RNA sequence: GGUCAACGCAAGGAGGCAGAUAUGGGACGCACAUAUCCUCUGAAUGUCCUGGUGGUUGGUGCAGCAUUUGUCUUCGUAGCCUCGAUGCUUUUCAUCUAGGCCACCUGGUGCACCUUAAGGUCAUUGGCAUCCAAGACCGCUUGAUAUGAUCCGCAAUUAGAAAAGCGCAUGUUCCGGGGUUGGAGCAUGCGCUUU
Numbered sequence: 001g002g003u004c005a006a007c008g009c010a011a012g013g014a015g016g017c018a019g020a021u022a023u024g025g026g027a028c029g030c031a032c033a034u035a036u037c038c039u040c041u042g043a044a045u046g047u048c049c050u051g052g053u054g055g056u057u058g059g060u061g062c063a064g065c066a067u068u069u070g071u072c073u074u075c076g077u078a079g080c081c082u083c084g085a086u087g088c089u090u091u092u093c094a095u096c097u098a099g100g101c102c103a104c105c106u107g108g109u110g111c112a113c114c115u116u117a118a119g120g121u122c123a124u125u126g127g128c129a130u131c132c133a134a135g136a137c138c139g140c141u142u143g144a145u146a147u148g149a150u151c152c153g154c155a156a157u158u159a160g161a162a163a164a165g166c167g168c169a170u171g172u173u174c175c176g177g178g179g180u181u182g183g184a185g186c187a188u189g190c191g192c193u194u195u
Stems, first nucleotide, its partner, number of pairs: 015048004024040003162195015
A member of the RNA family "Rhizobiales sRNA Atu_C9" from Neorhizobium alkalisoli, 195 nucleotides long. It scores 125 bits against the family's covariance model. The organism belongs to Neorhizobium, within Bacteria.